Record summary
Rfam assigns this 92-nucleotide sequence from Carlito syrichta to the family "Small nucleolar RNA SNORD116". The literature on the family includes a 2000 paper in Proc Natl Acad Sci U S A by Cavaille et al., "Identification of brain-specific and imprinted small nucleolar RNA genes exhibiting an unusual genomic organization". NCBI's taxonomy places the organism under Eukaryota, Euteleostomi, Amniota, Mammalia, Carlito.

RNA sequence: GAAUUAAUGAUGAUUCCCAAAUAUACAUUCCUUGGAAAUCCAAGCAAAAUUUGUGAACAUUCUAUAUCAUUGUCCUCAUGGUACUCAGGUCU
Numbered sequence: 001g002a003a004u005u006a007a008u009g010a011u012g013a014u015u016c017c018c019a020a021a022u023a024u025a026c027a028u029u030c031c032u033u034g035g036a037a038a039u040c041c042a043a044g045c046a047a048a049a050u051u052u053g054u055g056a057a058c059a060u061u062c063u064a065u066a067u068c069a070u071u072g073u074c075c076u077c078a079u080g081g082u083a084c085u086c087a088g089g090u091c092u
Stems, first nucleotide, its partner, number of pairs: 001092001003090003026055003032047003